[Rfam]
RNA sequence: CUGGUUCCGGUUCACGUCACGAGCGCCAUCGGCGCAACGACGACCCGGCGACC
Numbered sequence: 001c002u003g004g005u006u007c008c009g010g011u012u013c014a015c016g017u018c019a020c021g022a023g024c025g026c027c028a029u030c031g032g033c034g035c036a037a038c039g040a041c042g043a044c045c046c047g048g049c050g051a052c053c
Stems, first nucleotide, its partner, number of pairs: 003053003007048004015042004023035005

Notes
Shown here is a 53-nucleotide sequence, a member of the family "L31-Actinobacteria ribosomal protein leader". It is annotated as a cis-regulatory leader.